[Rfam]
RNA sequence: CGGGUGUUUCCACAGCCUCUACACAUGUGGGCAUGUCCACAGCGCAUGUGCAUUAGCUGUGGGAUCCCUCU
Numbered sequence: 001c002g003g004g005u006g007u008u009u010c011c012a013c014a015g016c017c018u019c020u021a022c023a024c025a026u027g028u029g030g031g032c033a034u035g036u037c038c039a040c041a042g043c044g045c046a047u048g049u050g051c052a053u054u055a056g057c058u059g060u061g062g063g064a065u066c067c068c069u070c071u
Stems, first nucleotide, its partner, number of pairs: 002070003006066001008064009022050007031043002
The record is a 71-nucleotide sequence from Branchiostoma floridae, which matches "mir-2070 microRNA precursor family" in Rfam.
Its family is annotated with RISC complex and miRNA-mediated post-transcriptional gene silencing in the Gene Ontology.
The organism belongs to Branchiostoma, within Eukaryota.